[Rfam]
RNA sequence: CGCUCGCUACCAGACUUGGGUUCGGCGGUUCAACCGGGGCCACGCCCCGGGGCAUUCCGCCGGCCCAGGCCAGCAUCAGCUUUCCGUCGGGGGUAAAGGCGUCGGGAAUGUGGCUCCCCUUCGGGGAGUGUUAUAGCCCGUCGUGUCAUACCCUUCGGGGGGCUGAGGUACGCGCUUCUGCAAGGAUGCUGGCGUAAUGGUAGCUAGUGACCCGUCUUGAAACACGG
Numbered sequence: 001c002g003c004u005c006g007c008u009a010c011c012a013g014a015c016u017u018g019g020g021u022u023c024g025g026c027g028g029u030u031c032a033a034c035c036g037g038g039g040c041c042a043c044g045c046c047c048c049g050g051g052g053c054a055u056u057c058c059g060c061c062g063g064c065c066c067a068g069g070c071c072a073g074c075a076u077c078a079g080c081u082u083u084c085c086g087u088c089g090g091g092g093g094u095a096a097a098g099g100c101g102u103c104g105g106g107a108a109u110g111u112g113g114c115u116c117c118c119c120u121u122c123g124g125g126g127a128g129u130g131u132u133a134u135a136g137c138c139c140g141u142c143g144u145g146u147c148a149u150a151c152c153c154u155u156c157g158g159g160g161g162g163c164u165g166a167g168g169u170a171c172g173c174g175c176u177u178c179u180g181c182a183a184g185g186a187u188g189c190u191g192g193c194g195u196a197a198u199g200g201u202a203g204c205u206a207g208u209g210a211c212c213c214g215u216c217u218u219g220a221a222a223c224a225c226g227g
Stems, first nucleotide, its partner, number of pairs: 001209004006204007017067006024060001071191007212227004

Rfam assigns this 227-nucleotide part of an RNA from Plectosphaerella cucumerina to the family "Eukaryotic large subunit ribosomal RNA". The base pairs follow the family's consensus structure, which is taken from published work. The family has 88 seed sequences and 107,465 matches in Rfam 15.1. The family is grouped with related families in Rfam's "LSU clan". A reference for the family is Yusupov et al. (2001), "Crystal structure of the ribosome at 5.5 A resolution", Science.